[Rfam]
The family of this 76-nucleotide RNA from Alligator mississippiensis is "Mammalian CPEB3 ribozyme". The base pairs follow the family's consensus structure, which is taken from published work. It scores 53 bits against the family's covariance model. The mammalian CPEB3 ribozyme is a self cleaving RNA located in the second intron of the CPEB3 gene which belongs to a family of genes regulating messenger RNA polyadenylation. Rfam links the family to the GO term RNA nuclease activity.
RNA sequence: UAAGAUUAAUAACAGCCAUAGCAGAAGUGCUCACGUUGUGGCCCUGUCAGAUUCUAAUGAAUAUGCGAAUUCUGCU
Numbered sequence: 001u002a003a004g005a006u007u008a009a010u011a012a013c014a015g016c017c018a019u020a021g022c023a024g025a026a027g028u029g030c031u032c033a034c035g036u037u038g039u040g041g042c043c044c045u046g047u048c049a050g051a052u053u054c055u056a057a058u059g060a061a062u063a064u065g066c067g068a069a070u071u072c073u074g075c076u
Stems, first nucleotide, its partner, number of pairs: 015042003020076007027039003048065002051062004